This 52-nucleotide RNA belongs to the Rfam family "nhaA-I RNA". Acidobacteria, Alphaproteobacteria, Betaproteobacteria and Gammaproteobacteria, Verrucomicrobia, cand. division NC10. It is annotated as a riboswitch.
RNA sequence: GGGUGUUCGCUGCGUGGUGCAGCGGCAGGUUAGCGAUGGUCGGGCCGCCACG
Number, nucleotide and partner (000 for none) at each position: 001g000002g000003g000004u000005g026006u025007u000008c024009g023010c022011u021012g020013c000014g000015u000016g000017g000018u000019g000020c012021a011022g010023c009024g008025g006026c005027a000028g000029g000030u000031u000032a000033g000034c052035g051036a000037u050038g049039g048040u047041c000042g000043g000044g000045c000046c000047g040048c039049c038050a037051c035052g034